Rfam assigns this 96-nucleotide RNA from Paraglaciecola hydrolytica to the family "c-di-GMP-I riboswitch aptamer". NCBI's taxonomy places the organism under Bacteria, Pseudomonadati, Pseudomonadota, Gammaproteobacteria, Paraglaciecola. The match comes from Rfam's covariance-model search (79 bits).

[Rfam]
RNA sequence: UUGUGAAAAAGGCAAAACAGAUGAAAGUCUGUGACGCAAAGCUUCCGGUCUAAGGCGCUGAACAACAGUAAGCACUAUGAUAGCGGGGUUACCAGA
Numbered sequence: 001u002u003g004u005g006a007a008a009a010a011g012g013c014a015a016a017a018c019a020g021a022u023g024a025a026a027g028u029c030u031g032u033g034a035c036g037c038a039a040a041g042c043u044u045c046c047g048g049u050c051u052a053a054g055g056c057g058c059u060g061a062a063c064a065a066c067a068g069u070a071a072g073c074a075c076u077a078u079g080a081u082a083g084c085g086g087g088g089u090u091a092c093c094a095g096a
Base pairs, nucleotide, nucleotide: 012037013036017032018031019030020029021028022027040090041089042088043087045086046085047084048081049080050079055075057073058072